RNA: Purine riboswitch aptamer
RNA sequence: UCAGAUUAACAAAUGUUUACUAAUAUAAUUUAGCGAUAUGGGCUAUAGUUUCUACCAAUCCCCUUAAAGGAUUGACUAUUAGAUUAAACAGUCGGUUU
Numbered sequence: 001u002c003a004g005a006u007u008a009a010c011a012a013a014u015g016u017u018u019a020c021u022a023a024u025a026u027a028a029u030u031u032a033g034c035g036a037u038a039u040g041g042g043c044u045a046u047a048g049u050u051u052c053u054a055c056c057a058a059u060c061c062c063c064u065u066a067a068a069g070g071a072u073u074g075a076c077u078a079u080u081a082g083a084u085u086a087a088a089c090a091g092u093c094g095g096u097u098u
Stems, first nucleotide, its partner, number of pairs: 020082006029047001031045004056074006